[Rfam]
RNA sequence: CGGAGAGAGAGGGAUUCGAACCCUCGGUACAGAUAAUCUGUACAACGGAUUAG
Numbered sequence: 001c002g003g004a005g006a007g008a009g010a011g012g013g014a015u016u017c018g019a020a021c022c023c024u025c026g027g028u029a030c031a032g033a034u035a036a037u038c039u040g041u042a043c044a045a046c047g048g049a050u051u052a053g
Base pairs, nucleotide, nucleotide: 009025010024011023012022013021027043028042029041030040031039032038
A member of the RNA family "Plastid-psbl-rps4 3UTR RNA" from Amentotaxus argotaenia, 53 nucleotides long. Rfam classes the family as a cis-regulatory element. Pairs were carried over by alignment from the consensus structure, which was predicted with LocARNA. Plastid psbl-rps4-psbC is a non-coding RNA (ncRNA) present in plastids. It is compose of two short stem-loops in tandem in the terminal 3 prime untranslate region (3UTR) mostly in psbl and rps4 seed plants genes. The sequence is in the family's curated seed alignment.